A member of the RNA family "Guanidine-I riboswitch aptamer" from Desulfofundulus thermobenzoicus, 110 nucleotides long. Rfam 15.1 lists 1,509 matches to the family in 1,281 species. The source organism's lineage runs through Bacteria, Bacillota, Clostridia, Eubacteriales and Desulfofundulus. This family represents a conserved RNA structure found upstream of the ykkC and yxkD genes in Bacillus subtilis and related genes in other bacteria. Gene Ontology term of the family: regulation of gene expression.
RNA sequence: GAAUUGGUUUUCUAGGGUUCCGUGCGGGUGGCGCAGUCUGGACCGAGAGAAAACACAUAAGGUCUACAAAAUAGACCGUAUGUACACGGAGGGAUAAAAGCCCGGGAGAU
Numbered sequence: 001g002a003a004u005u006g007g008u009u010u011u012c013u014a015g016g017g018u019u020c021c022g023u024g025c026g027g028g029u030g031g032c033g034c035a036g037u038c039u040g041g042a043c044c045g046a047g048a049g050a051a052a053a054c055a056c057a058u059a060a061g062g063u064c065u066a067c068a069a070a071a072u073a074g075a076c077c078g079u080a081u082g083u084a085c086a087c088g089g090a091g092g093g094a095u096a097a098a099a100g101c102c103c104g105g106g107a108g109a110u
Stems, first nucleotide, its partner, number of pairs: 007054006015044002020041002022038001023035004055083005061077005085105001087108001091103003